[Rfam]
RNA: Small nucleolar RNA SNORD34
RNA sequence: CGUGUCAAUGAUGUCACUUUUACCUACAUUGUUCGAUGCUCCCUGAGAGAAACCCAAACACUGAGACACCG
Numbered sequence: 001c002g003u004g005u006c007a008a009u010g011a012u013g014u015c016a017c018u019u020u021u022a023c024c025u026a027c028a029u030u031g032u033u034c035g036a037u038g039c040u041c042c043c044u045g046a047g048a049g050a051a052a053c054c055c056a057a058a059c060a061c062u063g064a065g066a067c068a069c070c071g
Stems, first nucleotide, its partner, number of pairs: 001071002003068004